About this RNA:
A member of the RNA family "Bacterial small signal recognition particle RNA" from Candidatus Mesenet longicola, 92 nucleotides long. From the family's description: The signal recognition particle (SRP) is a universally conserved ribonucleoprotein involved in the co-translational targeting of proteins to membranes. Rfam classes the family as a non-coding RNA gene. Clan: SRP clan. The organism belongs to Candidatus Mesenet, within Bacteria. A search with the family's covariance model found it, with a score of 50 bits.

RNA sequence: GAUUAGGCAUGUAGGCAAAAUUUCUAUAAAUUGGUCAGAUCAGAAAUGAAGCAGCCAUAUUAGAAUCAUUUUGGGUUACAUGCCCAUAUUGU
Numbered sequence: 001g002a003u004u005a006g007g008c009a010u011g012u013a014g015g016c017a018a019a020a021u022u023u024c025u026a027u028a029a030a031u032u033g034g035u036c037a038g039a040u041c042a043g044a045a046a047u048g049a050a051g052c053a054g055c056c057a058u059a060u061u062a063g064a065a066u067c068a069u070u071u072u073g074g075g076u077u078a079c080a081u082g083c084c085c086a087u088a089u090u091g092u
Stems, first nucleotide, its partner, number of pairs: 002090001004088002006084006012075001016073005022065005032057004040049003